Overview:
This 74-nucleotide RNA from a Thermoplasmatota archaeon belongs to the Rfam family "tRNA". Rfam links the family to the GO term triplet codon-amino acid adaptor activity. Taxonomically the source falls in Thermoplasmatota (Archaea, Methanobacteriati).
Nucleotides: 074
Base pairs, nucleotide, nucleotide: 001073002072003071004070005069006068007067010027011026012025029045030044031043032042033041050066051065052064053063054062
Number, partner (000 for none) and nucleotide at each position: 001073g002072c003071c004070c005069g006068u007067a008000u009000g010027g011026g012025g013000u014000a015000g016000c017000u018000u019000g020000g021000a022000u023000a024000u025012c026011c027010u028000a029045g030044a031043g032042g033041c034000c035000u036000g037000c038000g039000g040000a041033g042032c043031c044030u045029c046000a047000g048000a049000c050066c051065u052064g053063g054062g055000u056000u057000c058000g059000a060000a061000u062054c063053c064052c065051a066050g067007u068006g069005c070004g071003g072002g073001c074000g